Rfam assigns this 88-nucleotide RNA sequence from Plectus sambesii to the family "mir-83 microRNA precursor family". Lineage of the source: Eukaryota > Ecdysozoa > Plectida > Plectina > Plectus. The literature on the family includes a 2001 paper in Science by Lau et al., "An abundant class of tiny RNAs with probable regulatory roles in Caenorhabditis elegans". The match comes from Rfam's covariance-model search (46 bits).
RNA sequence: ACCGUCAGAUUCCUGAAUUCGCUUGCGUGCUGGACAGACGAUCCGGUCCCGCACCGAUCUAGCACCAUUUGAAUUCAGUUCUCUGAGU
Numbered sequence: 001a002c003c004g005u006c007a008g009a010u011u012c013c014u015g016a017a018u019u020c021g022c023u024u025g026c027g028u029g030c031u032g033g034a035c036a037g038a039c040g041a042u043c044c045g046g047u048c049c050c051g052c053a054c055c056g057a058u059c060u061a062g063c064a065c066c067a068u069u070u071g072a073a074u075u076c077a078g079u080u081c082u083c084u085g086a087g088u
Stems, first nucleotide, its partner, number of pairs: 013078009024067002027065002030062002033059002035056001